[Rfam]
RNA sequence: AAGGCUUCUGUUUUCUUAUGAGAUUUUUGCUUGCACGUUUUUGUAUGUGUUUGGCAAUCUUAAACUGAAGCCGAGAUGUGCGUUCCCCUCGCUAUCCAAUGUGGCAAUUUUGAUGCUGCAAUUGGACGUCGGGAAACAAAAUUA
Numbered sequence: 001a002a003g004g005c006u007u008c009u010g011u012u013u014u015c016u017u018a019u020g021a022g023a024u025u026u027u028u029g030c031u032u033g034c035a036c037g038u039u040u041u042u043g044u045a046u047g048u049g050u051u052u053g054g055c056a057a058u059c060u061u062a063a064a065c066u067g068a069a070g071c072c073g074a075g076a077u078g079u080g081c082g083u084u085c086c087c088c089u090c091g092c093u094a095u096c097c098a099a100u101g102u103g104g105c106a107a108u109u110u111u112g113a114u115g116c117u118g119c120a121a122u123u124g125g126a127c128g129u130c131g132g133g134a135a136a137c138a139a140a141a142u143u144a
Stems, first nucleotide, its partner, number of pairs: 003072003008067001010065004020059001027057005033051001035050003082137003086133003090128002095126005104116003
RNA: Small nucleolar RNA snoR136
Organism: Phaseolus vulgaris